Rfam assigns this 248-nucleotide part of an RNA from Methylopila turkensis to the family "Bacterial large subunit ribosomal RNA".
Pairs were carried over by alignment from the consensus structure, which is taken from published work.
NCBI's taxonomy places the organism under Bacteria, Pseudomonadati, Alphaproteobacteria, Hyphomicrobiales, Methylopila.
The match comes from Rfam's covariance-model search (2743 bits).
RNA sequence: GGAGAUUUGAGAGGAUUUGUCCCUAGUACGAGAGGACCGGGAUGAACGCACCUCUGGUGGACCUGUUGUGGCGCCAGCCGCAUUGCAGGGUAGCUAAGUGCGGACGGGAUAACCGCUGAAGGCAUCUAAGCGGGAAACCCCCCUCAAAACGAGAUCUCCCUUGAGAACCGUGGAAGACCACCACGUUGAUAGGCCGGGUGUGGAAGUGCGGCGACGCAUGAAGCUUACCGGUACUAAUCGUUCGAUUG
Numbered sequence: 001g002g003a004g005a006u007u008u009g010a011g012a013g014g015a016u017u018u019g020u021c022c023c024u025a026g027u028a029c030g031a032g033a034g035g036a037c038c039g040g041g042a043u044g045a046a047c048g049c050a051c052c053u054c055u056g057g058u059g060g061a062c063c064u065g066u067u068g069u070g071g072c073g074c075c076a077g078c079c080g081c082a083u084u085g086c087a088g089g090g091u092a093g094c095u096a097a098g099u100g101c102g103g104a105c106g107g108g109a110u111a112a113c114c115g116c117u118g119a120a121g122g123c124a125u126c127u128a129a130g131c132g133g134g135a136a137a138c139c140c141c142c143c144u145c146a147a148a149a150c151g152a153g154a155u156c157u158c159c160c161u162u163g164a165g166a167a168c169c170g171u172g173g174a175a176g177a178c179c180a181c182c183a184c185g186u187u188g189a190u191a192g193g194c195c196g197g198g199u200g201u202g203g204a205a206g207u208g209c210g211g212c213g214a215c216g217c218a219u220g221a222a223g224c225u226u227a228c229c230g231g232u233a234c235u236a237a238u239c240g241u242u243c244g245a246u247u248g
Stems, first nucleotide, its partner, number of pairs: 001159008011145004017045007047102005055096003062089005067082006106140003113133005162245001165243004169185005190236003193232005198226001200224001206219005